[Rfam]
RNA sequence: AAUGUCGCAUGCGACUGGCGUAGCGUGGAAGAAACCACGAGGAAGCUAGCGACUGAAGUGUGAGCAAUGCGUUGGAAUCCCUAUUGGAAUGGGGUUAUCACGACAGCAGCUCCAGCAUAGCCGUACGCCUGGGCAAAGUGU
Numbered sequence: 001a002a003u004g005u006c007g008c009a010u011g012c013g014a015c016u017g018g019c020g021u022a023g024c025g026u027g028g029a030a031g032a033a034a035c036c037a038c039g040a041g042g043a044a045g046c047u048a049g050c051g052a053c054u055g056a057a058g059u060g061u062g063a064g065c066a067a068u069g070c071g072u073u074g075g076a077a078u079c080c081c082u083a084u085u086g087g088a089a090u091g092g093g094g095u096u097a098u099c100a101c102g103a104c105a106g107c108a109g110c111u112c113c114a115g116c117a118u119a120g121c122c123g124u125a126c127g128c129c130u131g132g133g134c135a136a137a138g139u140g141u
Base pairs, nucleotide, nucleotide: 004053005052006051007050008049011046012045015042016041017129018128019127020126021125025038026037027036028035118136120134121133122132
RNA: ZMP/ZTP riboswitch aptamer (pfl RNA motif)